Shown here is a 141-nucleotide RNA from Pseudooceanicola algae, a member of the family "L2-Alphaproteobacteria ribosomal protein leader". It scores 47 bits against the family's covariance model.
RNA sequence: GGGGACCUUCGGGGCCCUAAACUUCGGGUAGUCUGUCAGCGAUGGUCCUUCCAACCGUCCGGCAAAUACCCAAUACAUAGCCGCUCCACGUGCCUGAUCGCAGGCAAACGAAGGCGGCGCUUGCUAAACGGAAGACAGAAA
Dot-bracket structure: ((((.(((...))))))).........((.((((.............................................................................)))).)).......................

The source organism's lineage runs through Bacteria, Pseudomonadota, Alphaproteobacteria, Rhodobacterales and Pseudooceanicola. A reference for the family is Eckert and Weinberg (2020), "Discovery of 20 novel ribosomal leader candidates in bacteria and archaea", BMC Microbiol.